[Rfam]
RNA sequence: UCGUAACACGAACCGGUGCUAAAGGAUCUUGCCCAACGGCUACUGACAGCUGUUGUUGGGGCAGGGACCCUUUAGCACCGGUUCGUGUUACAAA
Numbered sequence: 001u002c003g004u005a006a007c008a009c010g011a012a013c014c015g016g017u018g019c020u021a022a023a024g025g026a027u028c029u030u031g032c033c034c035a036a037c038g039g040c041u042a043c044u045g046a047c048a049g050c051u052g053u054u055g056u057u058g059g060g061g062c063a064g065g066g067a068c069c070c071u072u073u074a075g076c077a078c079c080g081g082u083u084c085g086u087g088u089u090a091c092a093a094a
Stems, first nucleotide, its partner, number of pairs: 003091023027067001029065002032060003036056002043049002

Description: Rfam assigns this 94-nucleotide sequence from Sorghum bicolor to the family "MIR5387 microRNA precursor family". The source organism's lineage runs through Eukaryota, Tracheophyta, Euphyllophyta, Andropogoneae and Sorghum. It is one of the family's seed sequences.